[Rfam]
Background
Rfam assigns this 95-nucleotide sequence from Eubacterium callanderi to the family "Glycine riboswitch aptamer". Rfam's curators write: This family represents the bacterial glycine riboswitch. The source organism's lineage runs through Bacteria, Bacillati, Bacillota, Eubacteriaceae and Eubacterium. Pairs were carried over by alignment from the consensus structure.
RNA sequence: CAACAAAACUCUGGAGAGUCUCUUUUAAAAGAGCGCCGAAGGUGUACCCCCUGUUUUCAGGGCUAUCUCUCAGGCAAAAGGACAGAGCAGUUAUU
Number, nucleotide and partner (000 for none) at each position: 001c000002a000003a000004c000005a000006a000007a000008a000009c087010u086011c085012u084013g083014g000015a000016g000017a000018g000019u000020c033021u032022c031023u030024u000025u000026u000027a000028a000029a000030a023031g022032a021033g020034c000035g075036c074037c073038g071039a070040a000041g000042g069043u000044g067045u000046a000047c000048c062049c061050c000051c000052u000053g000054u000055u000056u000057u000058c000059a000060g000061g049062g048063c000064u000065a000066u000067c044068u000069c042070u039071c038072a000073g037074g036075c035076a000077a000078a000079a000080g000081g000082a000083c013084a012085g011086a010087g009088c000089a000090g000091u000092u000093a000094u000095u000